[Rfam]
RNA sequence: GCUGACACCAGAGUAACAUCCUGACACAGCUCUUGUCCUGGUGUGCUAGAGUUCUGGAUGAAUCUACUGGUCUUGAUUCACUGGCAAAGACAAUCAGUGGCUAUGUCAGUACAAGUAUCUAAAACAUGG
Numbered sequence: 001g002c003u004g005a006c007a008c009c010a011g012a013g014u015a016a017c018a019u020c021c022u023g024a025c026a027c028a029g030c031u032c033u034u035g036u037c038c039u040g041g042u043g044u045g046c047u048a049g050a051g052u053u054c055u056g057g058a059u060g061a062a063u064c065u066a067c068u069g070g071u072c073u074u075g076a077u078u079c080a081c082u083g084g085c086a087a088a089g090a091c092a093a094u095c096a097g098u099g100g101c102u103a104u105g106u107c108a109g110u111a112c113a114a115g116u117a118u119c120u121a122a123a124a125c126a127u128g129g
Base pairs, nucleotide, nucleotide: 002056004054005053007052008051012047013046016044017043018042019041020040023037024036025035026034069119070118071117072115073114075112080110081109082108083107084106086104088102089101091099
Shown here is a 129-nucleotide RNA sequence from Mandrillus leucophaeus, a member of the family "Small nucleolar RNA SNORA3/SNORA45 family". Pairs were carried over by alignment from the consensus structure, which was predicted with RNAalifold. A search with the family's covariance model found it, with a score of 63 bits. The family is grouped with related families in Rfam's "SNORA3 clan". The members of this family belong to the H/ACA class of snoRNAs which are thought to guide the sites of modification of uridines to pseudouridines. This family includes mouse snoMBI-28 and human homologues ACA3 (SNORA3) and ACA3-2 (SNORA45). The organism belongs to Mandrillus, within Eukaryota.